[Rfam]
RNA sequence: UGCAUAUUUUGCUCAGGCGGAGCUCGACCGCCCGUUCAAGCGAUGAUCGCGUUCAUCGACGAUCAGCGCGCAGUUCAUGGGGUCGAGCUGAUCCGCAAGGUCUGCCGAUCGCCCCA
Number, nucleotide and partner (000 for none) at each position: 001u000002g000003c000004a000005u000006a000007u000008u000009u000010u000011g000012c000013u000014c000015a000016g032017g031018c030019g029020g028021a000022g000023c000024u000025c000026g000027a000028c020029c019030g018031c017032c016033c000034g000035u000036u000037c000038a000039a000040g000041c000042g000043a000044u000045g000046a000047u000048c000049g000050c000051g000052u000053u000054c000055a000056u000057c000058g000059a000060c000061g000062a000063u000064c000065a000066g000067c000068g000069c000070g000071c000072a000073g000074u000075u000076c000077a000078u116079g115080g114081g113082g112083u000084c000085g000086a000087g000088c000089u111090g110091a000092u108093c107094c000095g105096c104097a103098a000099g000100g000101u000102c000103u097104g096105c095106c000107g093108a092109u000110c090111g089112c082113c081114c080115c079116a078
Shown here is a 116-nucleotide RNA sequence from Sphingomonas sp. AX6, a member of the family "ALIL pseudoknot". The source organism's lineage runs through Bacteria, Pseudomonadati, Pseudomonadota, Sphingomonadaceae and Sphingomonas. For this family Rfam cites "Apical loop-internal loop RNA pseudoknots: a new type of stimulator of -1 translational frameshifting in bacteria" (Mazauric et al., J Biol Chem, 2008). The family's RNA type in Rfam is cis-regulatory element. The base pairs follow the family's consensus structure, which is taken from published work.